[Rfam]
RNA sequence: CACACGUUCCUUAGAUCCACCUCUCGGGGGCACUCUUGUACUGGUGCAGCAGCUCCAGUCUGGAGGCCCUCAGCAACUUUGCUGGUUGUACAGUGAGAGGUGCUUGAGUCAUUGGCGUGUGAGAGCAGUACACCUGCCCCCUGGCCCCUCCGCUGCACUGGCCCCCUGUGGCUCUGCCUGCAGGAAGCUCCCAGUGCAGCUGGGCUCAGGGGCGGACAUU
Numbered sequence: 001c002a003c004a005c006g007u008u009c010c011u012u013a014g015a016u017c018c019a020c021c022u023c024u025c026g027g028g029g030g031c032a033c034u035c036u037u038g039u040a041c042u043g044g045u046g047c048a049g050c051a052g053c054u055c056c057a058g059u060c061u062g063g064a065g066g067c068c069c070u071c072a073g074c075a076a077c078u079u080u081g082c083u084g085g086u087u088g089u090a091c092a093g094u095g096a097g098a099g100g101u102g103c104u105u106g107a108g109u110c111a112u113u114g115g116c117g118u119g120u121g122a123g124a125g126c127a128g129u130a131c132a133c134c135u136g137c138c139c140c141c142u143g144g145c146c147c148c149u150c151c152g153c154u155g156c157a158c159u160g161g162c163c164c165c166c167u168g169u170g171g172c173u174c175u176g177c178c179u180g181c182a183g184g185a186a187g188c189u190c191c192c193a194g195u196g197c198a199g200c201u202g203g204g205c206u207c208a209g210g211g212g213c214g215g216a217c218a219u220u
Stems, first nucleotide, its partner, number of pairs: 002120007010108005018102008026071005034064003040059005073089006134215005143206004154198008

The record is a 220-nucleotide RNA sequence from Albula goreensis, which matches "Small nucleolar RNA SNORA53" in Rfam. Rfam describes the family as follows. The snoRNA ACA53 belongs to the H/ACA family of pseudouridylation guide snoRNAs. The source organism's lineage runs through Eukaryota, Teleostomi, Albuliformes, Albulidae and Albula. It is annotated as an H/ACA-box small nucleolar RNA.